[Rfam]
RNA sequence: UAGGUUUGUCUUAAGUCAAAUCUGUUCAACUUUGACUAAGUUUAUAGAAAAAUAUAACAACAUGGAUACUGUCAAAUAUAUUCAUUAUCAAAAUAUAUUUCAUGGUGGAUUCAAUGAAACAAAUUUGGUAUUGUAAAUGUUGUUAUAUUUUCCCAUAAAUUUGGUCAAAGUUGAACAAAUUUUACUUAGGACAAAGCUAA
Numbered sequence: 001u002a003g004g005u006u007u008g009u010c011u012u013a014a015g016u017c018a019a020a021u022c023u024g025u026u027c028a029a030c031u032u033u034g035a036c037u038a039a040g041u042u043u044a045u046a047g048a049a050a051a052a053u054a055u056a057a058c059a060a061c062a063u064g065g066a067u068a069c070u071g072u073c074a075a076a077u078a079u080a081u082u083c084a085u086u087a088u089c090a091a092a093a094u095a096u097a098u099u100u101c102a103u104g105g106u107g108g109a110u111u112c113a114a115u116g117a118a119a120c121a122a123a124u125u126u127g128g129u130a131u132u133g134u135a136a137a138u139g140u141u142g143u144u145a146u147a148u149u150u151u152c153c154c155a156u157a158a159a160u161u162u163g164g165u166c167a168a169a170g171u172u173g174a175a176c177a178a179a180u181u182u183u184a185c186u187u188a189g190g191a192c193a194a195a196g197c198u199a200a
Stems, first nucleotide, its partner, number of pairs: 005195005011189006018182004023177004031169005045155001047153001049151004055145003059141005066134003072128006
Source information: The family of this 200-nucleotide sequence from Panicum miliaceum is "MIR1435 microRNA precursor family". Its family is annotated with miRNA-mediated post-transcriptional gene silencing and RISC complex in the Gene Ontology. The organism belongs to Panicum sect. Panicum, within Eukaryota.